[Rfam]
RNA sequence: CUGCAAUGAUGAGUUGCUUUCGGUCUGUGUUUCUGAUGUAAAUAUGACGAUAUGAAAGCUCUGAGCAG
Numbered sequence: 001c002u003g004c005a006a007u008g009a010u011g012a013g014u015u016g017c018u019u020u021c022g023g024u025c026u027g028u029g030u031u032u033c034u035g036a037u038g039u040a041a042a043u044a045u046g047a048c049g050a051u052a053u054g055a056a057a058g059c060u061c062u063g064a065g066c067a068g
Stems, first nucleotide, its partner, number of pairs: 001068004
About this RNA: A member of the RNA family "Small nucleolar RNA SNORD18" from Paramuricea clavata, 68 nucleotides long. For this family Rfam cites "Release of U18 snoRNA from its host intron requires interaction of Nop1p with the Rnt1p endonuclease" (Giorgi et al., EMBO J, 2001). Pairs were carried over by alignment from the consensus structure, which was predicted with PFOLD. It scores 43 bits against the family's covariance model. By type it is a C/D-box small nucleolar RNA.